[Rfam]
RNA: DUF805b RNA
RNA sequence: AACGGGGGUGCCGAAAACCGUGUGAAAGAGUAGGCG
Numbered sequence: 001a002a003c004g005g006g007g008g009u010g011c012c013g014a015a016a017a018c019c020g021u022g023u024g025a026a027a028g029a030g031u032a033g034g035c036g
Stems, first nucleotide, its partner, number of pairs: 002021004010035003